Rfam assigns this 90-nucleotide RNA sequence to the family "c-di-GMP-I-GGC riboswitch aptamer". On this family, see Smith et al., Nat Struct Mol Biol 2009: "Structural basis of ligand binding by a c-di-GMP riboswitch". Gene Ontology term of the family: cyclic-di-GMP binding. Rfam 15.1 lists 1,298 matches to the family in 717 species.
[Rfam]
RNA sequence: GGUUCAGUGGGCGCACUCAUCGAAAGAUGAGGGCGCGAAGCCGAAUGUCCUCCGGGUUGGACAACCCAAGGACAGCUUAGGUUGCCACCC
Number, nucleotide and partner (000 for none) at each position: 001g090002g000003u087004u000005c000006a000007g000008u000009g000010g000011g036012c035013g000014c000015a000016c031017u030018c029019a028020u027021c026022g000023a000024a000025a000026g021027a020028u019029g018030a017031g016032g000033g000034c075035g012036c011037g000038a000039a083040g082041c081042c080043g000044a078045a077046u000047g073048u072049c071050c070051u069052c000053c000054g000055g000056g000057u000058u000059g000060g000061a000062c000063a000064a000065c000066c000067c000068a000069a051070g050071g049072a048073c047074a000075g034076c000077u045078u044079a000080g042081g041082u040083u039084g000085c000086c000087a003088c000089c000090c001